[Rfam]
Record summary
Rfam assigns this 78-nucleotide RNA sequence from Phascolarctos cinereus to the family "mir-147 microRNA precursor family". Rfam links the family to the GO terms miRNA-mediated post-transcriptional gene silencing and RISC complex. NCBI's taxonomy places the organism under Eukaryota, Craniata, Gnathostomata, Euteleostomi, Phascolarctos. The base pairs follow the family's consensus structure, which was predicted with RNAalifold.
RNA sequence: UAUGAAUCUAAUGGAAACAUUUCUGCACAAACUAUACUACUGAAACCAGUGUGCAGAAGUGCUUCUGCUACAUUUUUA
Number, nucleotide and partner (000 for none) at each position: 001u078002a077003u000004g075005a074006a073007u072008c000009u070010a069011a000012u067013g066014g065015a064016a063017a000018c061019a060020u059021u058022u057023c056024u055025g054026c053027a052028c051029a050030a000031a000032c049033u048034a000035u000036a000037c000038u000039a000040c000041u000042g000043a000044a000045a000046c000047c000048a033049g032050u029051g028052u027053g026054c025055a024056g023057a022058a021059g020060u019061g018062c000063u016064u015065c014066u013067g012068c000069u010070a009071c000072a007073u006074u005075u004076u000077u002078a001